[Rfam]
RNA sequence: UCCUAAAUAUCAGGAGAGCGCGGCUUCUCUAGCUACGAGCGCAAAAGAGGUCGCCGCCGAAGGCGCAGGCCCGCGGGCCGAACGCUCAGGCAAAAGGACUGAUGCCCCGCC
Numbered sequence: 001u002c003c004u005a006a007a008u009a010u011c012a013g014g015a016g017a018g019c020g021c022g023g024c025u026u027c028u029c030u031a032g033c034u035a036c037g038a039g040c041g042c043a044a045a046a047g048a049g050g051u052c053g054c055c056g057c058c059g060a061a062g063g064c065g066c067a068g069g070c071c072c073g074c075g076g077g078c079c080g081a082a083c084g085c086u087c088a089g090g091c092a093a094a095a096g097g098a099c100u101g102a103u104g105c106c107c108c109g110c111c
Stems, first nucleotide, its partner, number of pairs: 008104006020054009056091003059087002063085003069078002